[Rfam]
Background:
The record is an 88-nucleotide sequence from Betaproteobacteria bacterium SCN1, which matches "Burkholderia RNA 7 (anti-hemB)" in Rfam. By type it is a small RNA. The source organism's lineage runs through Bacteria, Pseudomonadati, Pseudomonadota and Betaproteobacteria. This RNA motif was identified by computational search in b-proteobacteria Burkholderia. Co-purified with Hfq, expression confirmed by Northern blot. For this family Rfam cites "Identification of 22 candidate structured RNAs in bacteria using the CMfinder comparative genomics pipeline" (Weinberg et al., Nucleic Acids Res, 2007). The family's consensus secondary structure is taken from published work. Rfam links the family to the GO terms protein binding and bacterial biofilm matrix.

RNA sequence: UCUCCCGCUUCUCCUCCCUGAGCGGGAUGCCUUAAUCCCCUUAAGGCAUUUUGGCCCCGAUCCCUUCCCUUGGUCGGGGCCUUUUUAU
Number, nucleotide and partner (000 for none) at each position: 001u000002c000003u000004c026005c025006c024007g023008c022009u021010u000011c000012u000013c000014c000015u000016c000017c000018c000019u000020g000021a009022g008023c007024g006025g005026g004027a000028u000029g047030c046031c045032u044033u043034a042035a041036u000037c000038c000039c000040c000041u035042u034043a033044a032045g031046g030047c029048a000049u000050u000051u000052u000053g000054g080055c079056c078057c077058c076059g075060a074061u073062c000063c000064c000065u000066u000067c000068c000069c000070u000071u000072g000073g061074u060075c059076g058077g057078g056079g055080c054081c000082u000083u000084u000085u000086u000087a000088u000